[Rfam]
RNA sequence: GUUGAGGGGAAUGAAGCCUGGUCCGAAAUCAUUCAAAAGUAAAGAGUUGUAAUUUGAAUUAAGGGUUUCAAAAAUUCAAAAGAAAUGAAAGAUCUCGCACCAGACAACAUUCCCCUCAAC
Numbered sequence: 001g002u003u004g005a006g007g008g009g010a011a012u013g014a015a016g017c018c019u020g021g022u023c024c025g026a027a028a029u030c031a032u033u034c035a036a037a038a039g040u041a042a043a044g045a046g047u048u049g050u051a052a053u054u055u056g057a058a059u060u061a062a063g064g065g066u067u068u069c070a071a072a073a074a075u076u077c078a079a080a081a082g083a084a085a086u087g088a089a090a091g092a093u094c095u096c097g098c099a100c101c102a103g104a105c106a107a108c109a110u111u112c113c114c115c116u117c118a119a120c
Stems, first nucleotide, its partner, number of pairs: 001120013016105001018103004024097003

Rfam assigns this 120-nucleotide RNA sequence from Cucumis sativus to the family "mir-166 microRNA precursor family". The match comes from Rfam's covariance-model search (60 bits). Lineage of the source: Eukaryota > Viridiplantae > Streptophyta > rosids > Cucumis. The family has 31 seed sequences and 2,599 matches in Rfam 15.1. About the family: This family represents the plant microRNA (miRNA) precursor mir-166. A reference for the family is Ambros (2001), "microRNAs: tiny regulators with great potential", Cell. The base pairs follow the family's consensus structure, which was predicted with PFOLD.